[Rfam]
RNA sequence: UAUAUUGCCUCAACUUGAGCAUUGGCUUGUGUGUUACAUUCAGUAAGUGCUACUUGUUGGGGCGGUUGAG
Dot-bracket structure: ...((((((((.((..(((((((.(((..............))).)))))).)..)).))))))))....
RNA: miR-430 microRNA precursor family
Organism: Cyclopterus lumpus